This 97-nucleotide sequence from Mesorhizobium japonicum belongs to the Rfam family "Repression of heat shock gene expression (ROSE) element".
Rfam describes the family as follows. This family represents a 5' UTR cis-regulatory element found in heat shock mRNAs and is known as the ROSE (repression of heat shock gene expression) element. The ROSE element is a negative regulator of heat shock gene expression. The secondary structure is thought to be regulated by temperature. This regulation blocks access to the ribosome binding site under normal conditions.
It is one of the family's seed sequences.

RNA sequence: UCGGUCGCCGCAUAAGGGGCCGAUGUGUCAGGGAGCGCCAUGCUUCUUGGCGUUCCCUCGUAUCUAUGUUGCUCCAAGGAGGAUGUAGUUAUGAGAA
Number, nucleotide and partner (000 for none) at each position: 001u023002c022003g021004g020005u019006c018007g000008c017009c016010g000011c000012a000013u000014a000015a000016g009017g008018g006019g005020c004021c003022g002023a001024u000025g000026u000027g000028u000029c000030a000031g000032g056033g055034a054035g053036c052037g051038c050039c049040a048041u000042g000043c000044u000045u000046c000047u000048u040049g039050g038051c037052g036053u035054u034055c033056c032057c095058u094059c093060g092061u091062a090063u000064c088065u087066a086067u085068g084069u083070u082071g000072c081073u080074c079075c000076a000077a000078g000079g074080a073081g072082g070083a069084u068085g067086u066087a065088g064089u000090u062091a061092u060093g059094a058095g057096a000097a000

The source organism's lineage runs through Bacteria, Alphaproteobacteria, Phyllobacteriaceae, Mesorhizobium and Mesorhizobium japonicum. Gene Ontology terms of the family: response to temperature stimulus and regulation of translation.